[Rfam]
RNA: Fluoride riboswitch aptamer (crcB RNA motif)
RNA sequence: UGUGCAAAAGGAAAUGGUGUCUUCCUACUUAACCGCUCCGGGGUAAAUCUACCUUCACAGCUGAUGGCGCCUACAAAUAA
Number, nucleotide and partner (000 for none) at each position: 001u000002g000003u000004g000005c000006a000007a000008a000009a000010g025011g024012a023013a022014a000015u000016g071017g070018u069019g068020u067021c066022u013023u012024c011025c010026u000027a000028c000029u000030u000031a000032a000033c000034c000035g061036c060037u059038c000039c000040g000041g000042g000043g000044u000045a000046a000047a000048u000049c000050u000051a000052c000053c000054u000055u000056c000057a000058c000059a037060g036061c035062u000063g000064a000065u000066g021067g020068c019069g018070c017071c016072u000073a000074c000075a000076a000077a000078u000079a000080a000